[Rfam]
RNA: Guanidine-I riboswitch aptamer
RNA sequence: CGACAAGCAGUCUAGGGUUCCGUUAACGCCGAAAAGUCGUUAAGUCUGGUCCGAGAGACGGCGUAUAGAUGAAGGGGCUUUACGUGUCCCCAUCUAUAUAACACGGAAGGAUAAAAGCCUGGGAGAU
Numbered sequence: 001c002g003a004c005a006a007g008c009a010g011u012c013u014a015g016g017g018u019u020c021c022g023u024u025a026a027c028g029c030c031g032a033a034a035a036g037u038c039g040u041u042a043a044g045u046c047u048g049g050u051c052c053g054a055g056a057g058a059c060g061g062c063g064u065a066u067a068g069a070u071g072a073a074g075g076g077g078c079u080u081u082a083c084g085u086g087u088c089c090c091c092a093u094c095u096a097u098a099u100a101a102c103a104c105g106g107a108a109g110g111a112u113a114a115a116a117g118c119c120u121g122g123g124a125g126a127u
Stems, first nucleotide, its partner, number of pairs: 007062002010059003015052002020049002022046001023043006063099008102122001104125001108120003